The record is a 216-nucleotide sequence from Oryzias latipes, which matches "Small nucleolar RNA SNORA73 family" in Rfam. Clan: snR30-U17 clan. U17 (SNORA73A and SNORA73B) also known as E1 belongs to the H/ACA class of small nucleolar RNAs (snoRNAs). The family's consensus secondary structure is taken from published work.
[Rfam]
RNA sequence: CCGACGCGGACGUCCAGAGAGUUAUGCUCCUGGUUCUGUCCGGGUGGCGUAUGGGAGCGUAGCUCUGAGCUGAGACGUACAUUCCCGUUCCACAGCGUCGGACAGAAAGCUCCGCCCCCGGCCUCAGCUGGUGAGGGCGGGCGUCCUGCAUAUUCCUACACCUUCCCAGAGUCCUUUGGGCCGUUACUGGGGAGCUAAACCAUGCAGUGCACAGAU
Numbered sequence: 001c002c003g004a005c006g007c008g009g010a011c012g013u014c015c016a017g018a019g020a021g022u023u024a025u026g027c028u029c030c031u032g033g034u035u036c037u038g039u040c041c042g043g044g045u046g047g048c049g050u051a052u053g054g055g056a057g058c059g060u061a062g063c064u065c066u067g068a069g070c071u072g073a074g075a076c077g078u079a080c081a082u083u084c085c086c087g088u089u090c091c092a093c094a095g096c097g098u099c100g101g102a103c104a105g106a107a108a109g110c111u112c113c114g115c116c117c118c119c120g121g122c123c124u125c126a127g128c129u130g131g132u133g134a135g136g137g138c139g140g141g142c143g144u145c146c147u148g149c150a151u152a153u154u155c156c157u158a159c160a161c162c163u164u165c166c167c168a169g170a171g172u173c174c175u176u177u178g179g180g181c182c183g184u185u186a187c188u189g190g191g192g193a194g195c196u197a198a199a200c201c202a203u204g205c206a207g208u209g210c211a212c213a214g215a216u
Stems, first nucleotide, its partner, number of pairs: 001101007008041005014033003018028002020025001044093004053086004057080001059078002063072001146207006162194006171181004